[Rfam]
RNA sequence: AAUAGAAGAAUGACAAAUCAGGCUUUUCUCCUAAUUUUUUAGCCUUUUCCUCAUCAAAAAAUUCAAAUUCAAUUAAAAAUACUAAAAAUUAGGAGGAAAAAUCUGAUUUGUCAUUCUCCUAUU
Numbered sequence: 001a002a003u004a005g006a007a008g009a010a011u012g013a014c015a016a017a018u019c020a021g022g023c024u025u026u027u028c029u030c031c032u033a034a035u036u037u038u039u040u041a042g043c044c045u046u047u048u049c050c051u052c053a054u055c056a057a058a059a060a061a062u063u064c065a066a067a068u069u070c071a072a073u074u075a076a077a078a079a080u081a082c083u084a085a086a087a088a089u090u091a092g093g094a095g096g097a098a099a100a101a102u103c104u105g106a107u108u109u110g111u112c113a114u115u116c117u118c119c120u121a122u123u
Stems, first nucleotide, its partner, number of pairs: 001123005007117016024100004028095011041083002045079004
Dot-bracket structure: (((((.((((((((((((((((.(((((((((((((((..((..((((...........................))))..)).))))))))))).)))).)))))))))))))))).)))))
MIR7504 microRNA precursor family: a 123-nucleotide RNA from Gossypium aridum. It scores 110 bits against the family's covariance model. Rfam links the family to the GO terms miRNA-mediated post-transcriptional gene silencing and RISC complex.